[Rfam]
RNA sequence: GUGAGGUGAUGACACAGUUUAUCCAUUCUCUGAGUGCAGUGGAGCUGCCCUCCUGCAGCACCCCGAUUCCUGUUCUAGGGUCUGGGUGCUGUGCAGCCUCCAGACAUCCUGCAGUGUCCCAGUGUCCUGCUGGGGGCUGCUGUGCUGUGUGGCUGGCUGCCUGCAGGAGGGGAGCAGUGCUGGCAGGGUUGGAGCCCCUCUGUGGGGGGCUCCAUCCUCACUGGGACGAGGGAU
Numbered sequence: 001g002u003g004a005g006g007u008g009a010u011g012a013c014a015c016a017g018u019u020u021a022u023c024c025a026u027u028c029u030c031u032g033a034g035u036g037c038a039g040u041g042g043a044g045c046u047g048c049c050c051u052c053c054u055g056c057a058g059c060a061c062c063c064c065g066a067u068u069c070c071u072g073u074u075c076u077a078g079g080g081u082c083u084g085g086g087u088g089c090u091g092u093g094c095a096g097c098c099u100c101c102a103g104a105c106a107u108c109c110u111g112c113a114g115u116g117u118c119c120c121a122g123u124g125u126c127c128u129g130c131u132g133g134g135g136g137c138u139g140c141u142g143u144g145c146u147g148u149g150u151g152g153c154u155g156g157c158u159g160c161c162u163g164c165a166g167g168a169g170g171g172g173a174g175c176a177g178u179g180c181u182g183g184c185a186g187g188g189u190u191g192g193a194g195c196c197c198c199u200c201u202g203u204g205g206g207g208g209g210c211u212c213c214a215u216c217c218u219c220a221c222u223g224g225g226a227c228g229a230g231g232g233a234u
Stems, first nucleotide, its partner, number of pairs: 023232002026230003030225002034221002039184002042181001044178005049171002051168007059088005065082001068080004093160006106146001111140005117135008186219002188216001190214004195209004
RNA: Small nucleolar RNA SNORD17